[Rfam]
RNA: Glycine riboswitch aptamer
Organism: Hathewaya histolytica
RNA sequence: GGACAUGGCCCUGGAGAGUCUCUUUAAUUAGAGCAUCCAAGAAGCAACUUAUUGUAUUUAUUUCAAUGAGGAAUCUUUCAGAUAAAAGGACAGGGGGUAAAAA
Numbered sequence: 001g002g003a004c005a006u007g008g009c010c011c012u013g014g015a016g017a018g019u020c021u022c023u024u025u026a027a028u029u030a031g032a033g034c035a036u037c038c039a040a041g042a043a044g045c046a047a048c049u050u051a052u053u054g055u056a057u058u059u060a061u062u063u064c065a066a067u068g069a070g071g072a073a074u075c076u077u078u079c080a081g082a083u084a085a086a087a088g089g090a091c092a093g094g095g096g097g098u099a100a101a102a103a
Stems, first nucleotide, its partner, number of pairs: 009095005020033004035083003039078001042077003048070007
Dot-bracket structure: ........(((((......((((......)))).(((.(..(((...(((((((.........)))))))....))))..))).......)))))........